[Rfam]
RNA sequence: UCUGGAUAAACUUGUAUUCUCCCAAGAGAGAGGAACAAGUCACUUUACGGAAGUUAAAAUAAGUAACACAUUUCAGGAUUGAUAAAGGCUUACAUAUAAGUGAAAUUCUGAAAUGACAGGAUAACCGUAUGUCCUUUAGUAUUUUAUAAUAUAAAAAUAAUCUUGAAUAAUUUUAUUGUGAGUUUUCAAGUUACGGUGGG
Numbered sequence: 001u002c003u004g005g006a007u008a009a010a011c012u013u014g015u016a017u018u019c020u021c022c023c024a025a026g027a028g029a030g031a032g033g034a035a036c037a038a039g040u041c042a043c044u045u046u047a048c049g050g051a052a053g054u055u056a057a058a059a060u061a062a063g064u065a066a067c068a069c070a071u072u073u074c075a076g077g078a079u080u081g082a083u084a085a086a087g088g089c090u091u092a093c094a095u096a097u098a099a100g101u102g103a104a105a106u107u108c109u110g111a112a113a114u115g116a117c118a119g120g121a122u123a124a125c126c127g128u129a130u131g132u133c134c135u136u137u138a139g140u141a142u143u144u145u146a147u148a149a150u151a152u153a154a155a156a157a158u159a160a161u162c163u164u165g166a167a168u169a170a171u172u173u174u175a176u177u178g179u180g181a182g183u184u185u186u187c188a189a190g191u192u193a194c195g196g197u198g199g200g
Stems, first nucleotide, its partner, number of pairs: 001051004006046001008044001010040006017034005022028001069115004074110007088101002091098001118135005124197006130157001137151002140148002162190006169183001171181002
A member of the RNA family "IS605-orfB-I RNA", 200 nucleotides long.
Rfam classes the family as a small RNA.
It is one of the family's seed sequences.